The record is a 91-nucleotide sequence from Propithecus coquereli, which matches "mir-1289 microRNA precursor family" in Rfam. Lineage of the source: Eukaryota > Craniata > Tetrapoda > Mammalia > Propithecus.
[Rfam]
RNA sequence: GAACUUCUUAACUGAAGACUCUUGGAUUCCACUCCUAGAGAAUCAGUAAACCAGGAGUGGAGCCCAGGAAUCUGCAUUCCAGCAAAUAUUC
Numbered sequence: 001g002a003a004c005u006u007c008u009u010a011a012c013u014g015a016a017g018a019c020u021c022u023u024g025g026a027u028u029c030c031a032c033u034c035c036u037a038g039a040g041a042a043u044c045a046g047u048a049a050a051c052c053a054g055g056a057g058u059g060g061a062g063c064c065c066a067g068g069a070a071u072c073u074g075c076a077u078u079c080c081a082g083c084a085a086a087u088a089u090u091c
Base pairs, nucleotide, nucleotide: 011078013076014075016073017072018071020069021068022067023066024065025064027062028061029060030059031058032057033056034055035054036053